[Rfam]
RNA sequence: CAUAGACAAUGUCGCGUAAAGUGCUAUCACCUAGGAUAAUGUGAUAGACGAAGAGAAAAACUCGCGGUGGCAUUGCGAUCCACUAUA
Numbered sequence: 001c002a003u004a005g006a007c008a009a010u011g012u013c014g015c016g017u018a019a020a021g022u023g024c025u026a027u028c029a030c031c032u033a034g035g036a037u038a039a040u041g042u043g044a045u046a047g048a049c050g051a052a053g054a055g056a057a058a059a060a061c062u063c064g065c066g067g068u069g070g071c072a073u074u075g076c077g078a079u080c081c082a083c084u085a086u087a
Base pairs, nucleotide, nucleotide: 005076007075008074009073010072011071012070013069014068015066016065017064021049022048024047025046026045027044028043029042030041035080036079037078053063054062055061

The record is an 87-nucleotide RNA from Clostridium sp. CAG:307, which matches "THF (Tetrahydrofolate) riboswitch aptamer" in Rfam. It scores 37 bits against the family's covariance model. The family has 101 seed sequences and 747 matches in Rfam 15.1.